This 61-nucleotide sequence from Callithrix jacchus belongs to the Rfam family "U7 small nuclear RNA".
The family's consensus secondary structure was predicted with PFOLD.
Rfam's curators write: Animal histone pre-mRNAs are spliced by a different mechanism than nuclear pre-mRNAs and self-splicing introns. This processing involves the U7 snRNP, which contains only one RNA species: U7. The 5' end of U7 RNA is thought to base-pair to a conserved spacer element downstream of the cleavage site in histone pre-mRNA. This family contains a number of annotated U7 pseudogenes.
RNA sequence: UAGUGUUAUAGCUCUUUUAAAUUUGUCUAGCAGGUUUUCUGGUGUUCACCCAAAAACCUCC
Dot-bracket structure: ................................((((((..(((....)))..))))))...